[Rfam]
RNA sequence: UGCGAUACCCAUCAACGGAGUUGUUCCCCAUCCAAGGGCUACCUUACCAUAUACGGGAAUC
Numbered sequence: 001u002g003c004g005a006u007a008c009c010c011a012u013c014a015a016c017g018g019a020g021u022u023g024u025u026c027c028c029c030a031u032c033c034a035a036g037g038g039c040u041a042c043c044u045u046a047c048c049a050u051a052u053a054c055g056g057g058a059a060u061c
Stems, first nucleotide, its partner, number of pairs: 017045002020042002023039004
RNA: Plastid-psbN 5UTR RNA
Organism: Hibiscus trionum